[Rfam]
RNA sequence: UAAAUUCUUCGGGGCAGGGUGUAAUUCCCUACCGACGGUAUAGUCCGUGACCCACGUAUGUGGCUGAUUUGGUGAAAUUCCAAAACCGACAGUGACAGUCUGGAUGGGAGAAGAAACAG
Numbered sequence: 001u002a003a004a005u006u007c008u009u010c011g012g013g014g015c016a017g018g019g020u021g022u023a024a025u026u027c028c029c030u031a032c033c034g035a036c037g038g039u040a041u042a043g044u045c046c047g048u049g050a051c052c053c054a055c056g057u058a059u060g061u062g063g064c065u066g067a068u069u070u071g072g073u074g075a076a077a078u079u080c081c082a083a084a085a086c087c088g089a090c091a092g093u094g095a096c097a098g099u100c101u102g103g104a105u106g107g108g109a110g111a112a113g114a115a116a117c118a119g
Stems, first nucleotide, its partner, number of pairs: 005115006017029003031099002033088002035048004043086002052063002068084005090102003
RNA: FMN riboswitch aptamer (RFN element)
Organism: Drancourtella sp. An57